[Rfam]
The record is an 85-nucleotide RNA sequence from Microbacterium maritypicum, which matches "ZMP/ZTP riboswitch aptamer (pfl RNA motif)" in Rfam. The organism belongs to Microbacterium maritypicum, within Bacteria.
RNA sequence: CGUAACCGUCGCGACUGGCGUCUGGGUGGACUACCACCGGGGAGCGACUGACCACGGAAUUCGACCGCGCGCCUGGGCCGAUAGG
Numbered sequence: 001c002g003u004a005a006c007c008g009u010c011g012c013g014a015c016u017g018g019c020g021u022c023u024g025g026g027u028g029g030a031c032u033a034c035c036a037c038c039g040g041g042g043a044g045c046g047a048c049u050g051a052c053c054a055c056g057g058a059a060u061u062c063g064a065c066c067g068c069g070c071g072c073c074u075g076g077g078c079c080g081a082u083a084g085g
Base pairs, nucleotide, nucleotide: 006050008048009047010046011045012044015041016040017073018072019071020070021069026037027036028035029034062080063079065077066076